[Rfam]
RNA sequence: GCAGUGGGAAGGGGGGCCGAUGCACUGUACGAGAGUGAGUAGCAGGUCUCACAGUGAACCGGUCUCUUUCCCUACUGUGU
Numbered sequence: 001g002c003a004g005u006g007g008g009a010a011g012g013g014g015g016g017c018c019g020a021u022g023c024a025c026u027g028u029a030c031g032a033g034a035g036u037g038a039g040u041a042g043c044a045g046g047u048c049u050c051a052c053a054g055u056g057a058a059c060c061g062g063u064c065u066c067u068u069u070c071c072c073u074a075c076u077g078u079g080u
Stems, first nucleotide, its partner, number of pairs: 004075005013066007023056006031050003

This 80-nucleotide sequence from Eptesicus fuscus belongs to the Rfam family "mir-128 microRNA precursor family". Rfam's curators put it in the seed alignment. The source organism's lineage runs through Eukaryota, Chordata, Craniata, Mammalia and Eptesicus. The base pairs follow the family's consensus structure, which was predicted with RNAalifold. The literature on the family includes a 2005 paper in Genes Dev by Chen et al., "The developmental miRNA profiles of zebrafish as determined by small RNA cloning".